The record is a 600-nucleotide part of an RNA from Galdieria sulphuraria, which matches "Eukaryotic small subunit ribosomal RNA" in Rfam.
Pairs were carried over by alignment from the consensus structure, which is taken from published work.
The match comes from Rfam's covariance-model search (1571 bits).
RNA sequence: CGCGUAUGCUUGUCUCAAGGAUUAAGCCAUGCAAAUGCCAGUAUAAGCCACAUGGAUGGCGAGACUGUGAAUGGCUCAUUAAAACAGUUAUAAUCUACACAAUGUUAGUUUGUUAUAUGGAUAACCCUAGUAAUGCUAGAGCUAAUACAUGCCCUAUUUCCAUUUUUGGGAAUUGCACUUAUUAGUGGUCCUACUUUACACUUUUCCUGUCACAGGGUUUAGUGUUGAAUGUUGAAUCAUGAUAAUUUUGUGGAUUGAUAGUCUUUUUACUAUUGACGCAUUGUUUGAAUAUCUGCCCUAUCAACUUUUGACGGUAGGAUUGAGGCCUACCGUGGUGUUGACGGGUAACGGGGAAUUAGGGUUCGAUUCCGGAGAGGGAGCCUGAGAGAUGGCUACCACAUCCAAGGAUGGCAGCAGGCGCGCAAAUUACCCAAUCCUGACACAGGGAGGUAGCGACAAGAAAUACUGAUAGAUAACACUAAGUGUUAUUUUAUUGGCAUGACGUUUAUGUAAACGCGUAACGAAGUAACGAUUGGAGGGCAAGUCUGGUGCCAGCAGCCGCGGUAAUUCCAGCUCCAAUAGCGUACACGAACGUUGUUG
Numbered sequence: 001c002g003c004g005u006a007u008g009c010u011u012g013u014c015u016c017a018a019g020g021a022u023u024a025a026g027c028c029a030u031g032c033a034a035a036u037g038c039c040a041g042u043a044u045a046a047g048c049c050a051c052a053u054g055g056a057u058g059g060c061g062a063g064a065c066u067g068u069g070a071a072u073g074g075c076u077c078a079u080u081a082a083a084a085c086a087g088u089u090a091u092a093a094u095c096u097a098c099a100c101a102a103u104g105u106u107a108g109u110u111u112g113u114u115a116u117a118u119g120g121a122u123a124a125c126c127c128u129a130g131u132a133a134u135g136c137u138a139g140a141g142c143u144a145a146u147a148c149a150u151g152c153c154c155u156a157u158u159u160c161c162a163u164u165u166u167u168g169g170g171a172a173u174u175g176c177a178c179u180u181a182u183u184a185g186u187g188g189u190c191c192u193a194c195u196u197u198a199c200a201c202u203u204u205u206c207c208u209g210u211c212a213c214a215g216g217g218u219u220u221a222g223u224g225u226u227g228a229a230u231g232u233u234g235a236a237u238c239a240u241g242a243u244a245a246u247u248u249u250g251u252g253g254a255u256u257g258a259u260a261g262u263c264u265u266u267u268u269a270c271u272a273u274u275g276a277c278g279c280a281u282u283g284u285u286u287g288a289a290u291a292u293c294u295g296c297c298c299u300a301u302c303a304a305c306u307u308u309u310g311a312c313g314g315u316a317g318g319a320u321u322g323a324g325g326c327c328u329a330c331c332g333u334g335g336u337g338u339u340g341a342c343g344g345g346u347a348a349c350g351g352g353g354a355a356u357u358a359g360g361g362u363u364c365g366a367u368u369c370c371g372g373a374g375a376g377g378g379a380g381c382c383u384g385a386g387a388g389a390u391g392g393c394u395a396c397c398a399c400a401u402c403c404a405a406g407g408a409u410g411g412c413a414g415c416a417g418g419c420g421c422g423c424a425a426a427u428u429a430c431c432c433a434a435u436c437c438u439g440a441c442a443c444a445g446g447g448a449g450g451u452a453g454c455g456a457c458a459a460g461a462a463a464u465a466c467u468g469a470u471a472g473a474u475a476a477c478a479c480u481a482a483g484u485g486u487u488a489u490u491u492u493a494u495u496g497g498c499a500u501g502a503c504g505u506u507u508a509u510g511u512a513a514a515c516g517c518g519u520a521a522c523g524a525a526g527u528a529a530c531g532a533u534u535g536g537a538g539g540g541c542a543a544g545u546c547u548g549g550u551g552c553c554a555g556c557a558g559c560c561g562c563g564g565u566a567a568u569u570c571c572a573g574c575u576c577c578a579a580u581a582g583c584g585u586a587c588a589c590g591a592a593c594g595u596u597g598u599u600g
Base pairs, nucleotide, nucleotide: 001590002589004587005586006585007584008583009582010581013461014460015459019454020421026419027418028417030416031415032414035068036067040066041065042064047060048059075374076373077372085295086294087293090290091289094288095287100283101282102281103280116151117150118149119148125141127139128138129137130136158172159171160170161169179245180244181243182242183241184240193232194231255276256275257274258273259272260271261270262269297345298344299343304336305335306334311333312332313331314330315329316328317327318326349371350370351369352368353364354363355362356361376397377396379394380393381392399410400409401408402407427452429451430450431449435447436446437445438444439443467496468495469494471491472490473489474488475487476486477485478484479483503523504522505520533579534578535577536576537575538574546573547572548571549570555562556561
Its Rfam clan is "SSU clan". On this family, see Cannone et al., BMC Bioinformatics 2002: "The comparative RNA web (CRW) site: an online database of comparative sequence and structure information for ribosomal, intron, and other RNAs".